The family of this 114-nucleotide RNA sequence from Mycobacterium asiaticum is "Glycine riboswitch aptamer". The match comes from Rfam's covariance-model search (45 bits). The organism belongs to Mycobacterium, within Bacteria.
[Rfam]
RNA sequence: CGAUGCCUCUGGAAAGUGGUGGCGACCAUCCCGUCGUCACCCGCCGAUGGGGAAAGGCGCCGAGCGCCGAAUCUCUCAGGCGCCUGACGCACAGGUGAGGACAGAGGGGGAGGG
Dot-bracket structure: ...(.((((((......(((((((..........))))))).(((((..(((...((((.....))))....))))).)))....................)))))).).....